[Rfam]
RNA sequence: AGUGGAAGACUCCAAAGGGAUCGCAUUGAUCUGGCUAGCUAUCUCGAUCGAUCGCCUCAUCAACGACGACGUGCGAGAUCGAUCAGUGCAAUCCCUUUGGAAUUUUCCGC
Numbered sequence: 001a002g003u004g005g006a007a008g009a010c011u012c013c014a015a016a017g018g019g020a021u022c023g024c025a026u027u028g029a030u031c032u033g034g035c036u037a038g039c040u041a042u043c044u045c046g047a048u049c050g051a052u053c054g055c056c057u058c059a060u061c062a063a064c065g066a067c068g069a070c071g072u073g074c075g076a077g078a079u080c081g082a083u084c085a086g087u088g089c090a091a092u093c094c095c096u097u098u099g100g101a102a103u104u105u106u107c108c109g110c
Stems, first nucleotide, its partner, number of pairs: 002110005008104002011101011023089003026085001028084004036077001
RNA: mir-393 microRNA precursor family